[Rfam]
RNA sequence: CCACUCAUAGCUGAUGAUAUAAUCACUUAUGUGCUCGCGGGACUUGGCCAGGAGUAUGAUUCCUUGGCUUCCAUAAUUACCUCUCGUUUUGAUCUUGUCACUCUAGAGGAACUUUACUCACUUCUUCUCAUAUAUGAGU
Dot-bracket structure: ...(((((...............................................................................(((.(...........).))).........................))))).
A member of the RNA family "Small nucleolar RNA Z247" from Populus deltoides, 139 nucleotides long. The family's RNA type in Rfam is C/D-box small nucleolar RNA. Rfam 15.1 lists 7,071 matches to the family in 142 species. The family's consensus secondary structure was predicted with PFOLD. Gene Ontology terms of the family: nucleolus and RNA processing. For this family Rfam cites "The high diversity of snoRNAs in plants: identification and comparative study of 120 snoRNA genes from Oryza sativa" (Chen et al., Nucleic Acids Res, 2003). The organism belongs to Populus, within Eukaryota.